A member of the RNA family "U1 spliceosomal RNA" from Haemaphysalis longicornis, 176 nucleotides long. The family's consensus secondary structure is taken from published work. U1 is a small nuclear RNA (snRNA) component of the spliceosome (involved in pre-mRNA splicing). Its 5' end forms complementary base pairs with the 5' splice junction, thus defining the 5' donor site of an intron. There are significant differences in sequence and secondary structure between metazoan and yeast U1 snRNAs, the latter being much longer (568 nucleotides as compared to 164 nucleotides in human). Nevertheless, secondary structure predictions suggest that all U1 snRNAs share a 'common core' consisting of helices I, II, the proximal region of III, and IV. This family does not contain the larger yeast sequences. Gene Ontology terms of the family: pre-mRNA 5'-splice site binding, mRNA 5'-splice site recognition and U1 snRNP.
[Rfam]
RNA sequence: AUACUUACCUGGUGACAGGGCCUCGUUGAUCACAGAGGACGAGGCCCCAGGGCGAGGCGCAGGCAUUGCACUGCGCUCGCGUUGACCCCUGCCACUACCCCAACCUGGGGCAGGUGGGGCAUGCAAAUUGCUUAAAUCUGGUUCAACGCAAGAGAGGGCGCCACCGCCUCACCAAG
Numbered sequence: 001a002u003a004c005u006u007a008c009c010u011g012g013u014g015a016c017a018g019g020g021c022c023u024c025g026u027u028g029a030u031c032a033c034a035g036a037g038g039a040c041g042a043g044g045c046c047c048c049a050g051g052g053c054g055a056g057g058c059g060c061a062g063g064c065a066u067u068g069c070a071c072u073g074c075g076c077u078c079g080c081g082u083u084g085a086c087c088c089c090u091g092c093c094a095c096u097a098c099c100c101c102a103a104c105c106u107g108g109g110g111c112a113g114g115u116g117g118g119g120c121a122u123g124c125a126a127a128u129u130g131c132u133u134a135a136a137u138c139u140g141g142u143u144c145a146a147c148g149c150a151a152g153a154g155a156g157g158g159c160g161c162c163a164c165c166g167c168c169u170c171a172c173c174a175a176g
Stems, first nucleotide, its partner, number of pairs: 012122003016119001018047010049090004054086001056083003060079001062077003092117003095113001099108002139174004
Lineage of the source: Eukaryota > Eumetazoa > Panarthropoda > Ixodidae > Haemaphysalis.